Shown here is a 212-nucleotide RNA sequence from Chelatococcus composti, a member of the family "Bradyrhizobiaceae sRNA BjrC174". A search with the family's covariance model found it, with a score of 48 bits. On this family, see Madhugiri et al., RNA Biol 2012: "Small RNAs of the Bradyrhizobium/Rhodopseudomonas lineage and their analysis".
[Rfam]
RNA sequence: GAGACAAAUCUGAAAGAAAAACCACAAUUUGGCCGCAUAGCGGUCAAUGAGACGCCCCACUGCCGGGCGAUAAAUGCGACGUUGCCUCGAUGGUCCGGCGCUCGCUGUCCUGGAUCUAGUCAGCCCCCCAGCCCCCCGGGGCGGACGAGACGCCGGACCACUCGGUUCCGUGUAAGAGUAACUAGGGCCGGUGUCCCCGCACCGGCCCUAUU
Numbered sequence: 001g002a003g004a005c006a007a008a009u010c011u012g013a014a015a016g017a018a019a020a021a022c023c024a025c026a027a028u029u030u031g032g033c034c035g036c037a038u039a040g041c042g043g044u045c046a047a048u049g050a051g052a053c054g055c056c057c058c059a060c061u062g063c064c065g066g067g068c069g070a071u072a073a074a075u076g077c078g079a080c081g082u083u084g085c086c087u088c089g090a091u092g093g094u095c096c097g098g099c100g101c102u103c104g105c106u107g108u109c110c111u112g113g114a115u116c117u118a119g120u121c122a123g124c125c126c127c128c129c130a131g132c133c134c135c136c137c138g139g140g141g142c143g144g145a146c147g148a149g150a151c152g153c154c155g156g157a158c159c160a161c162u163c164g165g166u167u168c169c170g171u172g173u174a175a176g177a178g179u180a181a182c183u184a185g186g187g188c189c190g191g192u193g194u195c196c197c198c199g200c201a202c203c204g205g206c207c208c209u210a211u212u
Base pairs, nucleotide, nucleotide: 035173036172038050040048084168087165088164089163090162092159093158094157095156096155097154098153099152100151102149105144106143107142108141109140110139111138112137113136123132124131185208186207187206188205189204190203191202192201193200194199